[Rfam]
RNA sequence: AUGUAGUGUGACAUGCCCGUUUGGGAAUUACUCUGAUGCAUUUAAUUAUUAAUUAAUUGAUUUUUGGGAAACGGGGUGUUACAGAGGA
Numbered sequence: 001a002u003g004u005a006g007u008g009u010g011a012c013a014u015g016c017c018c019g020u021u022u023g024g025g026a027a028u029u030a031c032u033c034u035g036a037u038g039c040a041u042u043u044a045a046u047u048a049u050u051a052a053u054u055a056a057u058u059g060a061u062u063u064u065u066g067g068g069a070a071a072c073g074g075g076g077u078g079u080u081a082c083a084g085a086g087g088a
Stems, first nucleotide, its partner, number of pairs: 002088001004086001007083008016075006
This 88-nucleotide RNA from Medicago truncatula belongs to the Rfam family "MIR2617 microRNA precursor family". Pairs were carried over by alignment from the consensus structure, which was predicted with RNAalifold. Taxonomically the source falls in Medicago (Eukaryota, Streptophyta, eudicotyledons, Trifolieae). Gene Ontology terms of the family: RISC complex and miRNA-mediated post-transcriptional gene silencing.